[Rfam]
Manganese Mn2+ riboswitch aptamer (yybP-ykoY): a 230-nucleotide sequence from Cupriavidus yeoncheonensis.
This RNA was originally discovered in E. coli during a large scale screen and was named SraF. The family was later found to exist upstream of related families of protein genes in many bacteria, including the the yybP and ykoK genes in B. subtilis.
It scores 55 bits against the family's covariance model.
Taxonomically the source falls in Cupriavidus (Bacteria, Pseudomonadati, Pseudomonadota, Betaproteobacteria).
Pairs were carried over by alignment from the consensus structure.

RNA sequence: GCGGCUUCCAUUGGGGAGUAGCCGCCCUGCUCUGAUCGCGCCGCGCAAUGCGGAUUCCGGCAGACAGGGGCGUACGUCAACAGACUUGACCGCUUGCGGUUAUGGCGUGCGCAGCUCCGGACCCGGCUGGCCAUCUGGCCCAGCCCGAUCCAAGGCCUGGCGAGACCGAUGACCUCACCUUUCUGGCCGGGCCGGGAAAGGUGUGUGUCAUUGGCAUCUCGCGAUGCAUU
Dot-bracket structure: .........................(((.....................................))).((((((((((.......(((((......)))))))))))))))......(..............................................................................................................)
Numbered sequence: 001g002c003g004g005c006u007u008c009c010a011u012u013g014g015g016g017a018g019u020a021g022c023c024g025c026c027c028u029g030c031u032c033u034g035a036u037c038g039c040g041c042c043g044c045g046c047a048a049u050g051c052g053g054a055u056u057c058c059g060g061c062a063g064a065c066a067g068g069g070g071c072g073u074a075c076g077u078c079a080a081c082a083g084a085c086u087u088g089a090c091c092g093c094u095u096g097c098g099g100u101u102a103u104g105g106c107g108u109g110c111g112c113a114g115c116u117c118c119g120g121a122c123c124c125g126g127c128u129g130g131c132c133a134u135c136u137g138g139c140c141c142a143g144c145c146c147g148a149u150c151c152a153a154g155g156c157c158u159g160g161c162g163a164g165a166c167c168g169a170u171g172a173c174c175u176c177a178c179c180u181u182u183c184u185g186g187c188c189g190g191g192c193c194g195g196g197a198a199a200g201g202u203g204u205g206u207g208u209c210a211u212u213g214g215c216a217u218c219u220c221g222c223g224a225u226g227c228a229u230u
Stems, first nucleotide, its partner, number of pairs: 026068003070112010087102005119230001